[Rfam]
RNA sequence: ACUGCUGAGCCAUCUCUCUAGCUCCUAUAUUUUGUUUCUUUUUUAAAAUAUUUAAAAAAUUUGAGCUGGAGAGAUGGCUCAGCAGU
Numbered sequence: 001a002c003u004g005c006u007g008a009g010c011c012a013u014c015u016c017u018c019u020a021g022c023u024c025c026u027a028u029a030u031u032u033u034g035u036u037u038c039u040u041u042u043u044u045a046a047a048a049u050a051u052u053u054a055a056a057a058a059a060u061u062u063g064a065g066c067u068g069g070a071g072a073g074a075u076g077g078c079u080c081a082g083c084a085g086u
Stems, first nucleotide, its partner, number of pairs: 002085023
RNA: mir-3473 microRNA precursor family
Organism: Nannospalax galili